[Rfam]
RNA sequence: UUGCAUUUAGGUAGGGAAAGGUGUCAAUGUUUUCAUUUAUAUAUAAACAAUAUUGCACUUGUCCCGGCCUAUAAGCGA
Numbered sequence: 001u002u003g004c005a006u007u008u009a010g011g012u013a014g015g016g017a018a019a020g021g022u023g024u025c026a027a028u029g030u031u032u033u034c035a036u037u038u039a040u041a042u043a044u045a046a047a048c049a050a051u052a053u054u055g056c057a058c059u060u061g062u063c064c065c066g067g068c069c070u071a072u073a074a075g076c077g078a
Stems, first nucleotide, its partner, number of pairs: 001078004006073001010069002014065001016063002020059002023056001025055007
The family of this 78-nucleotide RNA from Lucilia cuprina is "mir-310 microRNA precursor family". The source organism's lineage runs through Eukaryota, Eumetazoa, Cyclorrhapha, Calliphoridae and Lucilia. The family's consensus secondary structure was predicted with RNAalifold.